[Rfam]
RNA sequence: AUGCGAGGUCCAGAGUCACCUUACCGGAUACGUGCGGGUUGGGUGCUAGGAUUGCUCGAAAAUAAAAUUGGGACAUUAUGCAAAUAGAACUCGCGUUCUGCUCUUCUAUUUCACCUCCGUUCCAGACAAU
Numbered sequence: 001a002u003g004c005g006a007g008g009u010c011c012a013g014a015g016u017c018a019c020c021u022u023a024c025c026g027g028a029u030a031c032g033u034g035c036g037g038g039u040u041g042g043g044u045g046c047u048a049g050g051a052u053u054g055c056u057c058g059a060a061a062a063u064a065a066a067a068u069u070g071g072g073a074c075a076u077u078a079u080g081c082a083a084a085u086a087g088a089a090c091u092c093g094c095g096u097u098c099u100g101c102u103c104u105u106c107u108a109u110u111u112c113a114c115c116u117c118c119g120u121u122c123c124a125g126a127c128a129a130u
Stems, first nucleotide, its partner, number of pairs: 004058004008052004014047002017045005025037001027035001069124003074119001079113002082111004087106003093101002

The family of this 130-nucleotide RNA sequence from Caenorhabditis angaria is "C. elegans snoRNA ceN100". A reference for the family is Jia et al. (2007), "Systematic identification of non-coding RNA 2,2,7-trimethylguanosine cap structures in Caenorhabditis elegans", BMC Mol Biol. The base pairs follow the family's consensus structure, which was predicted with RNAalifold.